[Rfam]
Background
A member of the RNA family "TPP riboswitch aptamer (THI element)" from Candidatus Epulonipiscium fishelsonii, 91 nucleotides long. A search with the family's covariance model found it, with a score of 66 bits. Lineage of the source: Bacteria > Bacillota > Clostridia > Lachnospiraceae > Candidatus Epulonipiscium.
RNA sequence: AUAAAAAGCUAGGGGUGCCUUUUCAGGCUGAGAAAUACCCUUAUUAGUUGAACUGGAUAAUGCCAGCGUAACGAAGCUAUAAGUAGAUCAU
Numbered sequence: 001a002u003a004a005a006a007a008g009c010u011a012g013g014g015g016u017g018c019c020u021u022u023u024c025a026g027g028c029u030g031a032g033a034a035a036u037a038c039c040c041u042u043a044u045u046a047g048u049u050g051a052a053c054u055g056g057a058u059a060a061u062g063c064c065a066g067c068g069u070a071a072c073g074a075a076g077c078u079a080u081a082a083g084u085a086g087a088u089c090a091u
Base pairs, nucleotide, nucleotide: 007078008077009076010075011041012040013039014038016035017028018027019026020025047072048071049070050069053066054065055064056063